[Rfam]
RNA sequence: ACGAGGUGUCCUCUCGAACCGGGUGAUGGAAGCGUCAGAUACUCCCAUUCUCCCAGCUCAUAGGGCACCUUUCACGUUAGCACGCCGGAAUGCACCCCUAUUUGACCGGUGGAUCGAG
Numbered sequence: 001a002c003g004a005g006g007u008g009u010c011c012u013c014u015c016g017a018a019c020c021g022g023g024u025g026a027u028g029g030a031a032g033c034g035u036c037a038g039a040u041a042c043u044c045c046c047a048u049u050c051u052c053c054c055a056g057c058u059c060a061u062a063g064g065g066c067a068c069c070u071u072u073c074a075c076g077u078u079a080g081c082a083c084g085c086c087g088g089a090a091u092g093c094a095c096c097c098c099u100a101u102u103u104g105a106c107c108g109g110u111g112g113a114u115c116g117a118g
Base pairs, nucleotide, nucleotide: 003071004070005069006068007067008066009065010064011063012062016059017058019056021054022053023052025049026048027047029045031043032042098116100114101113102112103111104110
Description
The family of this 118-nucleotide sequence from Trebonia kvetii is "Actinobacteria sRNA Ms_IGR-7". A search with the family's covariance model found it, with a score of 59 bits. Rfam classes the family as a small RNA. The literature on the family includes a 2013 paper in RNA by Li et al., "Identification of small RNAs in Mycobacterium smegmatis using heterologous Hfq". Rfam 15.1 lists 463 matches to the family in 194 species.